[Rfam]
Shown here is a 68-nucleotide sequence, a member of the family "tRNA". Gene Ontology term of the family: triplet codon-amino acid adaptor activity. The base pairs follow the family's consensus structure, which is taken from published work. Rfam's curators put it in the seed alignment.
Nucleotides: 068
Stems, first nucleotide, its partner, number of pairs: 001067007010023004025041005046060004
Number, partner (000 for none) and nucleotide at each position: 001067c002066a003065g004064a005063g006062a007061a008000u009000a010023g011022u012021u013020u014000a015000a016000a017000u018000u019000a020013g021012a022011a023010u024000c025041u026040u027039a028038g029037c030000u031000u032000u033000g034000g035000g036000u037029g038028c039027u040026a041025a042000u043000g044000g045000u046060g047059g048058a049057g050000u051000u052000a053000a054000a055000g056000a057049c058048u059047u060046u061007u062006u063005c064004u065003c066002u067001g068000a